Proteobacterial sRNA psRNA2: a 200-nucleotide sequence from Chitinimonas sp. BJB300. For this family Rfam cites "Computational prediction and transcriptional analysis of sRNAs in Nitrosomonas europaea" (Gvakharia et al., FEMS Microbiol Lett, 2010). Taxonomically the source falls in Chitinimonas (Bacteria, Pseudomonadota, Betaproteobacteria, Neisseriales).

Nucleotides: 200
Stems, first nucleotide, its partner, number of pairs: 001067007009060002014025004027058004032053004037048002076146002081140002085138001090107002092104005109135002170196003174193001176191005
Number, partner (000 for none) and nucleotide at each position: 001067g002066g003065g004064u005063u006062a007061c008000u009060c010059c011000u012000u013000g014025g015024c016023g017022c018000a019000u020000a021000u022017g023016c024015g025014c026000u027058g028057u029056u030055u031000c032053g033052a034051u035050a036000a037048a038047g039000a040000u041000u042000c043000g044000c045000a046000c047038c048037u049000g050035u051034a052033u053032c054000a055030a056029a057028a058027c059010g060009g061007g062006u063005a064004a065003c066002c067001c068000c069000a070000c071000c072000c073000u074000u075000u076146g077145g078000c079000a080000a081140g082139g083000u084000g085138g086000g087000a088000c089000u090107g091106u092104c093103a094102g095101a096100u097000c098000a099000a100096g101095u102094c103093u104092g105000a106091a107090c108000u109135u110134c111000u112000a113000c114000a115000a116000c117000u118000a119000a120000a121000c122000g123000c124000c125000g126000a127000g128000a129000c130000c131000g132000c133000u134110g135109g136000g137000c138085c139082u140081c141000g142000g143000c144000u145077u146076c147000u148000g149000a150000u151000u152000u153000g154000u155000a156000u157000c158000a159000a160000a161000g162000c163000g164000g165000c166000u167000g168000c169000c170196c171195g172194g173000u174193a175000g176191u177190a178189c179188u180187c181000a182000c183000c184000a185000u186000a187180g188179a189178g190177u191176a192000a193174u194172u195171c196170g197000g198000u199000c200000u
Overview: The family's RNA type in Rfam is small RNA.